[Rfam]
RNA: porB RNA
Organism: Neisseria meningitidis
RNA sequence: CAUCUAUAGUUUCAGACAUGGAAUCGCCGAGCCCCUCGGCGGUAAAUGCAAAGCUAAGCGGC
Numbered sequence: 001c002a003u004c005u006a007u008a009g010u011u012u013c014a015g016a017c018a019u020g021g022a023a024u025c026g027c028c029g030a031g032c033c034c035c036u037c038g039g040c041g042g043u044a045a046a047u048g049c050a051a052a053g054c055u056a057a058g059c060g061g062c
Stems, first nucleotide, its partner, number of pairs: 023043007
Dot-bracket structure: ......................(((((((.......)))))))...................